A member of the RNA family "mir-8517 microRNA precursor family" from Plutella xylostella, 101 nucleotides long. Lineage of the source: Eukaryota > Panarthropoda > Mandibulata > Ditrysia > Plutella. The base pairs follow the family's consensus structure, which was predicted with RNAalifold.

[Rfam]
RNA sequence: UUAGUGGAUGCUUUAGCUAUUGAUCUGUUCUGUCCCUCUCAAACAAAUUACUCUUUGACGGAGAGGGACAAAACAGUUCAAUAGCUAAAGCGUCCACUAAC
Numbered sequence: 001u002u003a004g005u006g007g008a009u010g011c012u013u014u015a016g017c018u019a020u021u022g023a024u025c026u027g028u029u030c031u032g033u034c035c036c037u038c039u040c041a042a043a044c045a046a047a048u049u050a051c052u053c054u055u056u057g058a059c060g061g062a063g064a065g066g067g068a069c070a071a072a073a074c075a076g077u078u079c080a081a082u083a084g085c086u087a088a089a090g091c092g093u094c095c096a097c098u099a100a101c
Stems, first nucleotide, its partner, number of pairs: 001100006011090013025076004029062006045049001